A member of the RNA family "Guanidine-I riboswitch aptamer" from Microbispora triticiradicis, 93 nucleotides long.
Rfam links the family to the GO term regulation of gene expression.
RNA sequence: GUGAGGCGCACCUAGGGUUCCGUUCGGCUGGUCCGAGAGGUGCAGGCGGCUCGGCGCGGAGCCGUUCCACGGCGGGACAAAAGCCCGGGAGGC
Numbered sequence: 001g002u003g004a005g006g007c008g009c010a011c012c013u014a015g016g017g018u019u020c021c022g023u024u025c026g027g028c029u030g031g032u033c034c035g036a037g038a039g040g041u042g043c044a045g046g047c048g049g050c051u052c053g054g055c056g057c058g059g060a061g062c063c064g065u066u067c068c069a070c071g072g073c074g075g076g077a078c079a080a081a082a083g084c085c086c087g088g089g090a091g092g093c
Base pairs, nucleotide, nucleotide: 008043009042010041011040012039015034016033020031021030022028045066046065047064048063049062050061051060052059068088070091074086075085076084
On this family, see Barrick et al., Proc Natl Acad Sci U S A 2004: "New RNA motifs suggest an expanded scope for riboswitches in bacterial genetic control". Taxonomically the source falls in Microbispora (Bacteria, Actinomycetota, Actinomycetes, Streptosporangiaceae). About the family: This family represents a conserved RNA structure found upstream of the ykkC and yxkD genes in Bacillus subtilis and related genes in other bacteria.